[Rfam]
RNA sequence: AUACUCAGGUUUCUCUUCAGAUUGAAUAAAUCUUUUGCCUUUUACUAAAGAUUUCCAUGGAGAGGAACAACCAUCAGUAAUUAGAAAUUUUUGGUGGGUCUGCUGUUGCAGAGCU
Numbered sequence: 001a002u003a004c005u006c007a008g009g010u011u012u013c014u015c016u017u018c019a020g021a022u023u024g025a026a027u028a029a030a031u032c033u034u035u036u037g038c039c040u041u042u043u044a045c046u047a048a049a050g051a052u053u054u055c056c057a058u059g060g061a062g063a064g065g066a067a068c069a070a071c072c073a074u075c076a077g078u079a080a081u082u083a084g085a086a087a088u089u090u091u092u093g094g095u096g097g098g099u100c101u102g103c104u105g106u107u108g109c110a111g112a113g114c115u
Stems, first nucleotide, its partner, number of pairs: 003078003009068011028054008097114001099112004

Rfam assigns this 115-nucleotide RNA sequence from Elachura formosa to the family "U5 spliceosomal RNA".
Rfam's curators write: U5 RNA is a component of both types of known spliceosome. The precise function of this molecule is unknown, though it is known that the 5' loop is required for splice site selection and p220 binding, and that both the 3' stem-loop and the Sm site are important for Sm protein binding and cap methylation.
Rfam links the family to the GO terms U5 snRNP and spliceosomal tri-snRNP complex assembly.
A search with the family's covariance model found it, with a score of 89 bits.
Rfam classes the family as a spliceosomal small nuclear RNA.